Nucleotides: 126
Stems, first nucleotide, its partner, number of pairs: 007080005013027004028051003033046003052075007099123010
Number, partner (000 for none) and nucleotide at each position: 001000a002000a003000a004000a005000a006000g007080g008079u009078c010077g011076g012000u013027u014026g015025g016024c017000u018000a019000u020000g021000u022000a023000u024016g025015c026014c027013a028051c029050a030049c031000a032000c033046a034045u035044c036000u037000u038000u039000u040000a041000a042000u043000u044035g045034a046033u047000a048000g049030g050029u051028g052075u053074u054073g055072u056071a057070u058069g059000g060000u061000u062000a063000u064000c065000a066000a067000g068000a069058c070057a071056u072055a073054u074053g075052g076011c077010c078009g079008a080007c081000a082000u083000a084000a085000u086000u087000u088000a089000u090000g091000g092000a093000u094000g095000a096000u097000a098000u099123a100122g101121g102120g103119u104118u105117g106116g107115c108114u109000u110000g111000c112000u113000u114108g115107g116106c117105u118104a119103a120102c121101c122100c123099u124000u125000u126000u
Rfam assigns this 126-nucleotide sequence from Dendrobium catenatum to the family "U11 spliceosomal RNA". Its family is annotated with mRNA 5'-splice site recognition, pre-mRNA 5'-splice site binding and U11 snRNP in the Gene Ontology. Lineage of the source: Eukaryota > Liliopsida > Asparagales > Epidendroideae > Dendrobium. Its Rfam clan is "U1 clan".